[Rfam]
RNA sequence: UUUUUUAGUAGAGGUGCAUUUUUCAUAAGUACUUAUUUUGAUGCAGUAAGGUGCAUAUGAUAAAUAAGAAAAGGGGACAAUGCCGAAGUUAGAAUUAUUCCUUACAAUAUUCUUUCUGGUUUUUAUGGAUAAUAUCUGUAUGAACUGUCAUCAUUUUUGGUGGAGCGCUACUAUAAUG
Numbered sequence: 001u002u003u004u005u006u007a008g009u010a011g012a013g014g015u016g017c018a019u020u021u022u023u024c025a026u027a028a029g030u031a032c033u034u035a036u037u038u039u040g041a042u043g044c045a046g047u048a049a050g051g052u053g054c055a056u057a058u059g060a061u062a063a064a065u066a067a068g069a070a071a072a073g074g075g076g077a078c079a080a081u082g083c084c085g086a087a088g089u090u091a092g093a094a095u096u097a098u099u100c101c102u103u104a105c106a107a108u109a110u111u112c113u114u115u116c117u118g119g120u121u122u123u124u125a126u127g128g129a130u131a132a133u134a135u136c137u138g139u140a141u142g143a144a145c146u147g148u149c150a151u152c153a154u155u156u157u158u159g160g161u162g163g164a165g166c167g168c169u170a171c172u173a174u175a176a177u178g
Stems, first nucleotide, its partner, number of pairs: 006173006016083005022077003032068007087117002091113005098106001118146005123140001126138004148163006
Lysine riboswitch aptamer: a 178-nucleotide sequence from Tyzzerella sp. An114.
The base pairs follow the family's consensus structure, which is taken from published work.
The match comes from Rfam's covariance-model search (101 bits).
Lineage of the source: Bacteria > Bacillati > Lachnospirales > Lachnospiraceae > Tyzzerella.